RNA sequence: UUAGUUUGUCUUAAGUCAAACUUCUUCAAGUUUGACCAAGUUUAUAGAAAAAUGUACCAACAUUUUUAACACCAAACAAAUAUAUUCAAUGAUGAUUUUAAUGAAAAUAAUUUGUGUUGUAGAUGCUACUACGUUUUUCUAUAUACUUGGUUAAACUUAAAGAAGUUUGACUUAGGAGAAAACUAA
Numbered sequence: 001u002u003a004g005u006u007u008g009u010c011u012u013a014a015g016u017c018a019a020a021c022u023u024c025u026u027c028a029a030g031u032u033u034g035a036c037c038a039a040g041u042u043u044a045u046a047g048a049a050a051a052a053u054g055u056a057c058c059a060a061c062a063u064u065u066u067u068a069a070c071a072c073c074a075a076a077c078a079a080a081u082a083u084a085u086u087c088a089a090u091g092a093u094g095a096u097u098u099u100a101a102u103g104a105a106a107a108u109a110a111u112u113u114g115u116g117u118u119g120u121a122g123a124u125g126c127u128a129c130u131a132c133g134u135u136u137u138u139c140u141a142u143a144u145a146c147u148u149g150g151u152u153a154a155a156c157u158u159a160a161a162g163a164a165g166u167u168u169g170a171c172u173u174a175g176g177a178g179a180a181a182a183c184u185a186a
Stems, first nucleotide, its partner, number of pairs: 005181003009177001011175016031155005045141008055131002059127001061125005067119002073114004
The family of this 186-nucleotide RNA from Oryza punctata is "MIR1435 microRNA precursor family". Rfam links the family to the GO terms RISC complex and miRNA-mediated post-transcriptional gene silencing. The match comes from Rfam's covariance-model search (104 bits).